[Rfam]
RNA sequence: CAUUGGCGAAGGAGUAUGCCUUAAUUCUCAGUG
Number, nucleotide and partner (000 for none) at each position: 001c033002a032003u031004u030005g029006g028007c000008g027009a022010a021011g020012g019013a000014g000015u000016a000017u000018g000019c012020c011021u010022u009023a000024a000025u000026u000027c008028u006029c005030a004031g003032u002033g001
RNA: S4-Flavobacteria ribosomal protein leader